[Rfam]
RNA sequence: UGGAAGGUAUCCCCAGGGGAACUUUACCAGUACGCCGUGCUUAUUCCGGACAAUGUCACACAUCGCUUGGAUCAUUAAGACCGGGACGAGACG
Numbered sequence: 001u002g003g004a005a006g007g008u009a010u011c012c013c014c015a016g017g018g019g020a021a022c023u024u025u026a027c028c029a030g031u032a033c034g035c036c037g038u039g040c041u042u043a044u045u046c047c048g049g050a051c052a053a054u055g056u057c058a059c060a061c062a063u064c065g066c067u068u069g070g071a072u073c074a075u076u077a078a079g080a081c082c083g084g085g086a087c088g089a090g091a092c093g
Stems, first nucleotide, its partner, number of pairs: 001029003004025005010020002063089003066085005072080002